RNA sequence: UGAGCUUGAUCUCAGCCGAAGGCUUACGUUAUACGUGGGCUACUAAUGUAGGUUGGAUGGGGCUCA
Numbered sequence: 001u002g003a004g005c006u007u008g009a010u011c012u013c014a015g016c017c018g019a020a021g022g023c024u025u026a027c028g029u030u031a032u033a034c035g036u037g038g039g040c041u042a043c044u045a046a047u048g049u050a051g052g053u054u055g056g057a058u059g060g061g062g063c064u065c066a
Stems, first nucleotide, its partner, number of pairs: 001066007009058002012056006021041009